[Rfam]
RNA sequence: UGCCUAAACCGUCGGGGAAACCCGCGGCAUGGCGUAAAACCGAUGAGAGUAUAAAGCUCCUAGUCAGAGCACUCUCAUCGGUCAUAUCUCGAAAGGGAUAUGGGUGGCCGCAAGGCCAUC
Numbered sequence: 001u002g003c004c005u006a007a008a009c010c011g012u013c014g015g016g017g018a019a020a021c022c023c024g025c026g027g028c029a030u031g032g033c034g035u036a037a038a039a040c041c042g043a044u045g046a047g048a049g050u051a052u053a054a055a056g057c058u059c060c061u062a063g064u065c066a067g068a069g070c071a072c073u074c075u076c077a078u079c080g081g082u083c084a085u086a087u088c089u090c091g092a093a094a095g096g097g098a099u100a101u102g103g104g105u106g107g108c109c110g111c112a113a114g115g116c117c118a119u120c
Stems, first nucleotide, its partner, number of pairs: 001034004009027003013024003040081011056070004083102008103120006